RNA sequence: UUAACAGUAAUGUUAUGGAUGAAGGAAGUGGUGUAGCGACUCUUUUGAGCGUACGAACAGAAACUUGAUAUAAGGCUAAAUGGUGGAUAAGAUUGCCGAACAAAUCGAAGUCCAAAAGGUAAACGUAAAACCAAGACAGUAAAUCAAGGCGUUGUGAAAGAGAUAGGAUUAGUGA
Numbered sequence: 001u002u003a004a005c006a007g008u009a010a011u012g013u014u015a016u017g018g019a020u021g022a023a024g025g026a027a028g029u030g031g032u033g034u035a036g037c038g039a040c041u042c043u044u045u046u047g048a049g050c051g052u053a054c055g056a057a058c059a060g061a062a063a064c065u066u067g068a069u070a071u072a073a074g075g076c077u078a079a080a081u082g083g084u085g086g087a088u089a090a091g092a093u094u095g096c097c098g099a100a101c102a103a104a105u106c107g108a109a110g111u112c113c114a115a116a117a118g119g120u121a122a123a124c125g126u127a128a129a130a131c132c133a134a135g136a137c138a139g140u141a142a143a144u145c146a147a148g149g150c151g152u153u154g155u156g157a158a159a160g161a162g163a164u165a166g167g168a169u170u171a172g173u174g175a
Base pairs, nucleotide, nucleotide: 002015003014004013005012006011029175031173032172037166041161042160043159044158045157047155048153049152050151051150052149064148065147066146067145068144069143075140076139077138081133082132083131084130085113086112087111088110091106092105093104094103

Background:
Group II catalytic intron D1-D4-3: a 175-nucleotide sequence from Longibaculum muris. Pairs were carried over by alignment from the consensus structure. Group II introns are found in rRNA, tRNA and mRNA of organelles in fungi, plants and protists, and also in mRNA in bacteria.